[Rfam]
RNA sequence: AAGAUCUCGACAGGGUCGAUAUGAGAACACAUGUGCAAUCAACGGCUGUAAUGAUGCCACGUCAUUUUUACAAUCUCUCCUUUUCAUGUGUUCUCAGGUCACCCCUGCUGAGCUCUU
Numbered sequence: 001a002a003g004a005u006c007u008c009g010a011c012a013g014g015g016u017c018g019a020u021a022u023g024a025g026a027a028c029a030c031a032u033g034u035g036c037a038a039u040c041a042a043c044g045g046c047u048g049u050a051a052u053g054a055u056g057c058c059a060c061g062u063c064a065u066u067u068u069u070a071c072a073a074u075c076u077c078u079c080c081u082u083u084u085c086a087u088g089u090g091u092u093c094u095c096a097g098g099u100c101a102c103c104c105c106u107g108c109u110g111a112g113c114u115c116u117u
Stems, first nucleotide, its partner, number of pairs: 007111002011107004018100002023095010
RNA: MIR398 microRNA precursor family